[Rfam]
Shown here is a 119-nucleotide sequence, a member of the family "Actinobacteria sRNA Ms_IGR-7". It is annotated as a small RNA. The family has 14 seed sequences and 463 matches in Rfam 15.1. It scores 75 bits against the family's covariance model.
Nucleotides: 119
Base pairs, nucleotide, nucleotide: 002073003072004071005070006069007068008067009066010065011064013062016060017059019057020056021055022054025051026050027049028048030046032044033043100117102115103113104112105111
Number, partner (000 for none) and nucleotide at each position: 001000c002073g003072g004071a005070g006069a007068u008067g009066c010065a011064c012000c013062u014000c015000c016060g017059a018000a019057c020056u021055g022054g023000u024000c025051g026050a027049g028048u029000a030046g031000a032044a033043g034000c035000c036000u037000a038000g039000a040000g041000a042000a043033c044032u045000c046030c047000u048028a049027u050026u051025c052000u053000c054022c055021c056020a057019g058000g059017u060016c061000a062013g063000a064011g065010u066009g067008c068007a069006u070005c071004u072003c073002c074000a075000c076000u077000u078000u079000c080000a081000u082000g083000u084000c085000c086000g087000g088000a089000c090000a091000c092000u093000g094000g095000a096000c097000g098000g099000a100117c101000c102115a103113u104112c105111a106000c107000c108000c109000g110000g111105u112104g113103a114000a115102u116000c117100g118000a119000g